[Rfam]
RNA: Selenocysteine transfer RNA
Organism: Beauveria bassiana
RNA sequence: GGAAGGUCGUCGUCUCCGGUGAGGCGGCUGGACUUCAACUCCAGUUGGUGCCGCCAGCGGCGCCGGGCAGGUUCGACUCCUGUGACUUUCC
Numbered sequence: 001g002g003a004a005g006g007u008c009g010u011c012g013u014c015u016c017c018g019g020u021g022a023g024g025c026g027g028c029u030g031g032a033c034u035u036c037a038a039c040u041c042c043a044g045u046u047g048g049u050g051c052c053g054c055c056a057g058c059g060g061c062g063c064c065g066g067g068c069a070g071g072u073u074c075g076a077c078u079c080c081u082g083u084g085a086c087u088u089u090c091c
Stems, first nucleotide, its partner, number of pairs: 001091009011026006027045006047064005068082004